RNA sequence: GGAGGGAACUUCUACUCGGAUCGUCCGGCACGUUCCUGCCGGUGGAAGGUGGCUACUC
Numbered sequence: 001g002g003a004g005g006g007a008a009c010u011u012c013u014a015c016u017c018g019g020a021u022c023g024u025c026c027g028g029c030a031c032g033u034u035c036c037u038g039c040c041g042g043u044g045g046a047a048g049g050u051g052g053c054u055a056c057u058c
Stems, first nucleotide, its partner, number of pairs: 009048006025042006
Source information:
Rfam assigns this 58-nucleotide RNA from Dactylosporangium vinaceum to the family "msiK RNA". The source organism's lineage runs through Bacteria, Actinomycetota, Micromonosporales, Micromonosporaceae and Dactylosporangium. It scores 49 bits against the family's covariance model. The base pairs follow the family's consensus structure, which is taken from published work. The family's RNA type in Rfam is cis-regulatory element.